Shown here is a 170-nucleotide RNA sequence from Mandrillus leucophaeus, a member of the family "Small Cajal body specific RNA 16".
Pairs were carried over by alignment from the consensus structure, which was predicted with RNAfold.
Rfam links the family to the GO terms nucleolus and RNA processing.
About the family: scaRNAs are a specific class of small nuclear RNAs which localise to the Cajal bodies and guide the modification of RNA polymerase II transcribed spliceosomal RNAs U1, U2, U4, U5 and U12.
A search with the family's covariance model found it, with a score of 127 bits.
RNA sequence: AUGGUCUGGGAAAAGGCUCCUAUGUUGUUGAACCUGCCCAGUUGUGGGUGUGCAGCCCAACUCUGACCUGAGUAAAUUCCCAGAAGUCUUUCCUGUAUUUUGAAUUUGUAGUAACAGCUGUGGGCAUUCUAGCAGCAGUUCGAUGAUCAUAUAUGAUACCACAAACAGGA
Numbered sequence: 001a002u003g004g005u006c007u008g009g010g011a012a013a014a015g016g017c018u019c020c021u022a023u024g025u026u027g028u029u030g031a032a033c034c035u036g037c038c039c040a041g042u043u044g045u046g047g048g049u050g051u052g053c054a055g056c057c058c059a060a061c062u063c064u065g066a067c068c069u070g071a072g073u074a075a076a077u078u079c080c081c082a083g084a085a086g087u088c089u090u091u092c093c094u095g096u097a098u099u100u101u102g103a104a105u106u107u108g109u110a111g112u113a114a115c116a117g118c119u120g121u122g123g124g125c126a127u128u129c130u131a132g133c134a135g136c137a138g139u140u141c142g143a144u145g146a147u148c149a150u151a152u153a154u155g156a157u158a159c160c161a162c163a164a165a166c167a168g169g170a
Base pairs, nucleotide, nucleotide: 003068004067005066006065008063009062010061015057016056017055018054019052030051032049033048034047081095083092084091085090105165106164107163108162109161111159112158113157115155116154121149122148123147125145126144127143128142131140132139133138